[Rfam]
Nucleotides: 109
Base pairs, nucleotide, nucleotide: 008095009094010093011061012060013059014058016055017031018030019029020028021027039054040053041052042051043050044049065090066089067088068087071084072083073082074081
Number, partner (000 for none) and nucleotide at each position: 001000u002000u003000u004000u005000a006000a007000a008095g009094c010093u011061a012060g013059g014058g015000g016055g017031g018030c019029u020028g021027g022000u023000u024000u025000a026000a027021c028020c029019a030018g031017c032000u033000g034000a035000g036000a037000u038000u039054a040053a041052g042051a043050a044049u045000g046000a047000u048000g049044a050043u051042u052041c053040u054039u055016u056000g057000a058014c059013c060012c061011u062000u063000g064000a065090c066089c067088u068087g069000a070000u071084c072083u073082g074081g075000a076000u077000c078000a079000u080000g081074c082073c083072a084071g085000c086000g087068u088067a089066g090065g091000g092000a093010a094009g095008c096000a097000g098000u099000g100000u101000u102000u103000a104000a105000a106000u107000a108000u109000u